[Rfam]
RNA sequence: GUCGCCAUAGUUCAACGGAUAGAACAGGUUCCUCCUAAGAAUCAGAUACAGGUUCGAUUCCUGUUGGCGACA
Numbered sequence: 001g002u003c004g005c006c007a008u009a010g011u012u013c014a015a016c017g018g019a020u021a022g023a024a025c026a027g028g029u030u031c032c033u034c035c036u037a038a039g040a041a042u043c044a045g046a047u048a049c050a051g052g053u054u055c056g057a058u059u060c061c062u063g064u065u066g067g068c069g070a071c072a
Stems, first nucleotide, its partner, number of pairs: 001071007010025004027043005048064005
A member of the RNA family "tRNA" from Rugamonas rivuli, 72 nucleotides long. Lineage of the source: Bacteria > Pseudomonadota > Betaproteobacteria > Oxalobacteraceae > Rugamonas. Rfam links the family to the GO term triplet codon-amino acid adaptor activity. The match comes from Rfam's covariance-model search (65 bits).